[Rfam]
RNA sequence: AUCGUUCAUCUCUUCCCAAGCUCUCCCGCUGUAAGUGCUUCAUUCACAAUCCAAACGGGUUAACGGGUGACAUUUAAGAAGCGGUCGAUAUUUGACGGUAGAGACGGAAGUAGGGAAUCCCCCGAAGGAACGCGCU
Numbered sequence: 001a002u003c004g005u006u007c008a009u010c011u012c013u014u015c016c017c018a019a020g021c022u023c024u025c026c027c028g029c030u031g032u033a034a035g036u037g038c039u040u041c042a043u044u045c046a047c048a049a050u051c052c053a054a055a056c057g058g059g060u061u062a063a064c065g066g067g068u069g070a071c072a073u074u075u076a077a078g079a080a081g082c083g084g085u086c087g088a089u090a091u092u093u094g095a096c097g098g099u100a101g102a103g104a105c106g107g108a109a110g111u112a113g114g115g116a117a118u119c120c121c122c123c124g125a126a127g128g129a130a131c132g133c134g135c136u
Stems, first nucleotide, its partner, number of pairs: 003132005009104005107133001113123003

Glutamine riboswitch aptamer (glnA leader): a 136-nucleotide sequence from Synechococcus sp. PCC 6312. NCBI's taxonomy places the organism under Bacteria, Bacillati, Cyanobacteriota, Synechococcales, Synechococcus. Rfam links the family to the GO term glutamine binding. It scores 50 bits against the family's covariance model.